[Rfam]
Rfam assigns this 136-nucleotide sequence to the family "Hepatitis C alternative reading frame stem-loop".
The sequence is in the family's curated seed alignment.
On this family, see Fricke et al., RNA 2015: "Conserved RNA secondary structures and long-range interactions in hepatitis C viruses".
RNA sequence: ACCCGCCGCCCACAGGACGUUAAGUUCCCGGGCGGCGGCCAGAUCGUUGGUGGAGUCUACUUGCUACCGCGCAGGGGCCCUAGAUUGGGUGUGCGCGCGACGAGGAAGACUUCUGAACGGUCCCAGCCCAGAGGCA
Numbered sequence: 001a002c003c004c005g006c007c008g009c010c011c012a013c014a015g016g017a018c019g020u021u022a023a024g025u026u027c028c029c030g031g032g033c034g035g036c037g038g039c040c041a042g043a044u045c046g047u048u049g050g051u052g053g054a055g056u057c058u059a060c061u062u063g064c065u066a067c068c069g070c071g072c073a074g075g076g077g078c079c080c081u082a083g084a085u086u087g088g089g090u091g092u093g094c095g096c097g098c099g100a101c102g103a104g105g106a107a108g109a110c111u112u113c114u115g116a117a118c119g120g121u122c123c124c125a126g127c128c129c130a131g132a133g134g135c136a
Base pairs, nucleotide, nucleotide: 003038004037005036006035007034008033009032010031011030015027016026017025018024042122043121044120045119046118047117048115049114050113052112053111055110056109057108058107060105061104062102063101068097069096070095071094072093073092077090078089079088080087
Pairs were carried over by alignment from the consensus structure, which was predicted with RNAfold.
It is annotated as a cis-regulatory element.